[Rfam]
RNA sequence: AUGUCAGAAAAAGGAUUCUGCUGUCGGUCCCACUCCAAAUGUCUCAGAAUGGGUGGUGGGCACAGAAUCCGGACUCUGCUUGUG
Numbered sequence: 001a002u003g004u005c006a007g008a009a010a011a012a013g014g015a016u017u018c019u020g021c022u023g024u025c026g027g028u029c030c031c032a033c034u035c036c037a038a039a040u041g042u043c044u045c046a047g048a049a050u051g052g053g054u055g056g057u058g059g060g061c062a063c064a065g066a067a068u069c070c071g072g073a074c075u076c077u078g079c080u081u082g083u084g
Base pairs, nucleotide, nucleotide: 001083002082003081005078006077007076008075013070014069015068016067017066018065019064020063022062023061024060025059027057030056031055032054033053034052035051
The family of this 84-nucleotide RNA from Loxodonta africana is "mir-541 microRNA precursor family". Gene Ontology terms of the family: type B pancreatic cell development, RISC complex and miRNA-mediated post-transcriptional gene silencing. For this family Rfam cites "Mouse microRNA profiles determined with a new and sensitive cloning method" (Takada et al., Nucleic Acids Res, 2006). Taxonomically the source falls in Loxodonta (Eukaryota, Opisthokonta, Vertebrata, Tetrapoda). The family's consensus secondary structure was predicted with RNAalifold.